[Rfam]
Record summary: Shown here is a 90-nucleotide RNA sequence from Anaeromicrobium sediminis, a member of the family "c-di-GMP-I riboswitch aptamer". Taxonomically the source falls in Anaeromicrobium (Bacteria, Bacillati, Bacillota, Thermotaleaceae). Rfam links the family to the GO term cyclic-di-GMP binding. The literature on the family includes a 2008 paper in Science by Sudarsan et al., "Riboswitches in Eubacteria Sense the Second Messenger Cyclic Di-GMP".
RNA sequence: GUUUGAUAAGGGCAAAACUGAUGAAAAUUAGUGACGCAAAGCUAUAGGGACUAAGGUUAGAAUGAAAAACUAUGUCUGCCAGCUACCGAA
Dot-bracket structure: ...........((...((((((....))))))...))..((((...(((((....(((.........)))...)))..))))))......